[Rfam]
RNA sequence: AGCCAAGGACAUGAUUCUAUACUUGAUGUCACUGAUCAGGUUGUAUCUGAGUAUAAUCAAAUGGUUUCUGAGUCU
Numbered sequence: 001a002g003c004c005a006a007g008g009a010c011a012u013g014a015u016u017c018u019a020u021a022c023u024u025g026a027u028g029u030c031a032c033u034g035a036u037c038a039g040g041u042u043g044u045a046u047c048u049g050a051g052u053a054u055a056a057u058c059a060a061a062u063g064g065u066u067u068c069u070g071a072g073u074c075u
Stems, first nucleotide, its partner, number of pairs: 001075002045065003
The family of this 75-nucleotide RNA sequence from Arabidopsis thaliana is "Small nucleolar RNA R43". Gene Ontology terms of the family: nucleolus and RNA processing. For this family Rfam cites "Identification of 66 box C/D snoRNAs in Arabidopsis thaliana: extensive gene duplications generated multiple isoforms predicting new ribosomal RNA 2'-O-methylation sites" (Barneche et al., J Mol Biol, 2001). Rfam classes the family as a C/D-box small nucleolar RNA. A search with the family's covariance model found it, with a score of 56 bits.